[Rfam]
RNA sequence: GUUCCCAGUGAUGUUUAAAUUUGAACCAUGCUAAUGCUGAUGCUUAAUGGAUGAAACUAUUCUCUAUUUGCUGAGGGAACA
Numbered sequence: 001g002u003u004c005c006c007a008g009u010g011a012u013g014u015u016u017a018a019a020u021u022u023g024a025a026c027c028a029u030g031c032u033a034a035u036g037c038u039g040a041u042g043c044u045u046a047a048u049g050g051a052u053g054a055a056a057c058u059a060u061u062c063u064c065u066a067u068u069u070g071c072u073g074a075g076g077g078a079a080c081a
Base pairs, nucleotide, nucleotide: 001080002079003078004077005076
Notes
Shown here is an 81-nucleotide RNA sequence from Turnera subulata, a member of the family "Small nucleolar RNA snoR53Y". The family's RNA type in Rfam is C/D-box small nucleolar RNA. On this family, see Brown et al., RNA 2001: "Multiple snoRNA gene clusters from Arabidopsis". Lineage of the source: Eukaryota > Streptophytina > Mesangiospermae > rosids > Turnera. A search with the family's covariance model found it, with a score of 71 bits. The family is grouped with related families in Rfam's "snoR53 clan". Gene Ontology terms of the family: nucleolus and RNA processing.